RNA sequence: AGAGGUCACAAGUCUGAGGCCAUAGCAGAAGCGCUCACAGUGUGGUCAUAUCAAAUUCCAGCGAAUCUGUGAAUUCUGGU
Numbered sequence: 001a002g003a004g005g006u007c008a009c010a011a012g013u014c015u016g017a018g019g020c021c022a023u024a025g026c027a028g029a030a031g032c033g034c035u036c037a038c039a040g041u042g043u044g045g046u047c048a049u050a051u052c053a054a055a056u057u058c059c060a061g062c063g064a065a066u067c068u069g070u071g072a073a074u075u076c077u078g079g080u
Stems, first nucleotide, its partner, number of pairs: 013048001018047004024080001026078005031043003052069002055066004